[Rfam]
RNA sequence: UGAUGGUGGUGGCUGGUUUCAUGGUGGUGGCUGG
Numbered sequence: 001u002g003a004u005g006g007u008g009g010u011g012g013c014u015g016g017u018u019u020c021a022u023g024g025u026g027g028u029g030g031c032u033g034g
Base pairs, nucleotide, nucleotide: 001024003022004021005020006019